[Rfam]
The record is a 355-nucleotide part of an RNA from Melghirimyces profundicolus, which matches "Bacterial large subunit ribosomal RNA" in Rfam.
RNA sequence: CGGGAAAACUCUCGUUAAGGAACUCGGCAAAAUGACCCCGUAACUUCGGGAGAAGGGGUGCCCCGGCAGGGUGGCCUUCGGGCUGCCCGAGGGGGCCGCAGUGAAGAGGCCCAAGCGACUGUUUAGCAAAAACACAGGUCUCUGCGAAGCCGCAAGGCGAAGUAUAGGGGCUGACGCCUGCCCGGUGCUGGAAGGUUAAGGGGAAGGGUCAGCAUCAAGCGAAGCUCUGAACCGAAGCCCCAGUAAACGGCGGCCGUAACUAUAACGGUCCUAAGGUAGCGAAAUUCCUUGUCGGGUAAGUUCCGACCCGCACGAAAGGCGCAACGACUUGGGCGCUGUCUCAACGAGAGACCCG
Number, nucleotide and partner (000 for none) at each position: 001c355002g354003g353004g352005a000006a000007a000008a000009c350010u349011c348012u347013c346014g345015u344016u343017a000018a341019g340020g339021a000022a000023c000024u000025c000026g000027g000028c000029a000030a000031a000032a000033u000034g000035a059036c058037c057038c056039c055040g000041u000042a000043a000044c049045u000046u000047c000048g000049g044050g000051a000052g000053a000054a000055g039056g038057g037058g036059u035060g096061c095062c094063c093064c092065g000066g000067c000068a000069g000070g000071g086072u085073g084074g083075c082076c081077u000078u000079c000080g000081g076082g075083c074084u073085g072086c071087c000088c000089g000090a000091g000092g064093g063094g062095g061096c060097c101098g000099c000100a000101g097102u000103g000104a000105a000106g000107a000108g000109g334110c333111c332112c331113a330114a329115g328116c326117g325118a000119c000120u134121g133122u132123u000124u000125a000126g000127c000128a000129a000130a000131a000132a122133c121134a120135c000136a000137g172138g171139u170140c169141u168142c167143u166144g165145c162146g000147a000148a000149g158150c157151c156152g000153c000154a000155a000156g151157g150158c149159g000160a000161a000162g145163u000164a000165u144166a143167g142168g141169g140170g139171c138172u137173g000174a000175c321176g320177c319178c318179u000180g251181c250182c249183c000184g000185g248186u247187g244188c243189u242190g241191g240192a000193a000194g239195g238196u237197u000198a000199a000200g233201g232202g000203g000204a000205a228206g227207g226208g225209u224210c000211a000212g220213c219214a000215u000216c000217a000218a000219g213220c212221g000222a000223a000224g209225c208226u207227c206228u205229g000230a000231a000232c201233c200234g000235a000236a000237g196238c195239c194240c191241c190242a189243g188244u187245a000246a000247a186248c185249g182250g181251c180252g270253g269254c268255c267256g266257u265258a000259a000260c000261u000262a000263u000264a000265a257266c256267g255268g254269u253270c252271c275272u000273a000274a000275g271276g000277u000278a000279g000280c000281g308282a000283a000284a000285u000286u000287c000288c000289u000290u000291g307292u306293c305294g304295g303296g302297u000298a000299a000300g000301u000302u296303c295304c294305g293306a292307c291308c281309c000310g000311c000312a000313c000314g000315a000316a000317a000318g178319g177320c176321g175322c000323a000324a000325c117326g116327a000328c115329u114330u113331g112332g111333g110334c109335g000336c000337u000338g000339u020340c019341u018342c000343a016344a015345c014346g013347a012348g011349a010350g009351a000352c004353c003354c002355g001
The source organism's lineage runs through Bacteria, Bacillati, Bacillota, Thermoactinomycetaceae and Melghirimyces.